[Rfam]
RNA sequence: AUAUAAGUAAAGAUUCAUUUUCCAGGUUCAUUGAAUGAAUGAUGUAUCUGGUCCAUAAUAUAGAUCAAAUAUAUCAGUUAUUCAAUGAACCUGAAAAAUGAAUUUUUGCUUAUAU
Dot-bracket structure: .((((((.(((((.(((((((.(((.((((((((((((.(((((....((((...........))))....))))).)))))))))))).))).))))))).))))).)))))).
Numbered sequence: 001a002u003a004u005a006a007g008u009a010a011a012g013a014u015u016c017a018u019u020u021u022c023c024a025g026g027u028u029c030a031u032u033g034a035a036u037g038a039a040u041g042a043u044g045u046a047u048c049u050g051g052u053c054c055a056u057a058a059u060a061u062a063g064a065u066c067a068a069a070u071a072u073a074u075c076a077g078u079u080a081u082u083c084a085a086u087g088a089a090c091c092u093g094a095a096a097a098a099u100g101a102a103u104u105u106u107u108g109c110u111u112a113u114a115u
Stems, first nucleotide, its partner, number of pairs: 002114006009107005015101007023093003027089012040076005049067004
Notes: This 115-nucleotide RNA sequence from Trifolium medium belongs to the Rfam family "MIR2593 microRNA precursor family". Gene Ontology terms of the family: miRNA-mediated post-transcriptional gene silencing and RISC complex. NCBI's taxonomy places the organism under Eukaryota, Tracheophyta, Euphyllophyta, Pentapetalae, Trifolium. The base pairs follow the family's consensus structure, which was predicted with RNAalifold.